RNA sequence: CAACCGAAGCGCCGGUAUUCCAAAUCUGUUUAAAAAAUGAGCAGAACUGACUGGACGUGACGCGAUACUGGCUAAUACUUGAGGUGUCGGCGCGACAUCUCCCCCAAGUGACGCGCUGAUUAAAGGUGCUAAGGGACCGUGCGCCUUUGUUUUACUCCUAAUGGUCUUAACCCGGAUUCGCCCCCCCAAGAAUCCGG
Numbered sequence: 001c002a003a004c005c006g007a008a009g010c011g012c013c014g015g016u017a018u019u020c021c022a023a024a025u026c027u028g029u030u031u032a033a034a035a036a037a038u039g040a041g042c043a044g045a046a047c048u049g050a051c052u053g054g055a056c057g058u059g060a061c062g063c064g065a066u067a068c069u070g071g072c073u074a075a076u077a078c079u080u081g082a083g084g085u086g087u088c089g090g091c092g093c094g095a096c097a098u099c100u101c102c103c104c105c106a107a108g109u110g111a112c113g114c115g116c117u118g119a120u121u122a123a124a125g126g127u128g129c130u131a132a133g134g135g136a137c138c139g140u141g142c143g144c145c146u147u148u149g150u151u152u153u154a155c156u157c158c159u160a161a162u163g164g165u166c167u168u169a170a171c172c173c174g175g176a177u178u179c180g181c182c183c184c185c186c187c188a189a190g191a192a193u194c195c196g197g
Base pairs, nucleotide, nucleotide: 039166040165042163043162086120087119088118089117091115092114094112096110097109098108122148123147124146125145126144127143128142129141130139172197173196174195175194177192178191179190